Shown here is a 49-nucleotide sequence from Nocardioides seonyuensis, a member of the family "L17-Actino-Proteobacteria ribosomal protein leader". The source organism's lineage runs through Bacteria, Actinomycetota, Actinomycetes, Nocardioidaceae and Nocardioides. The family's RNA type in Rfam is cis-regulatory leader.
RNA sequence: CCGACGCCGCGUCGGACGUCUACCCCGGUACCUGACACGGCCGGAGAGA
Numbered sequence: 001c002c003g004a005c006g007c008c009g010c011g012u013c014g015g016a017c018g019u020c021u022a023c024c025c026c027g028g029u030a031c032c033u034g035a036c037a038c039g040g041c042c043g044g045a046g047a048g049a
Stems, first nucleotide, its partner, number of pairs: 001015006019049003023046001025044005